[Rfam]
RNA sequence: GCUUUCAACAUCCCCGUUUCAGAGGCGCAAGGCAUUUGCCAACGACCUUAUGAGACUGAAGGC
Dot-bracket structure: (((((((........((((((.(..((...((......))..))...)..)))))))))))))
Numbered sequence: 001g002c003u004u005u006c007a008a009c010a011u012c013c014c015c016g017u018u019u020c021a022g023a024g025g026c027g028c029a030a031g032g033c034a035u036u037u038g039c040c041a042a043c044g045a046c047c048u049u050a051u052g053a054g055a056c057u058g059a060a061g062g063c
Stems, first nucleotide, its partner, number of pairs: 001063007016056006023048001026044002031040002
The record is a 63-nucleotide RNA sequence from Edaphobacter aggregans, which matches "nadA riboswitch" in Rfam. By type it is a small RNA. The source organism's lineage runs through Bacteria, Pseudomonadati, Terriglobia, Acidobacteriaceae and Edaphobacter.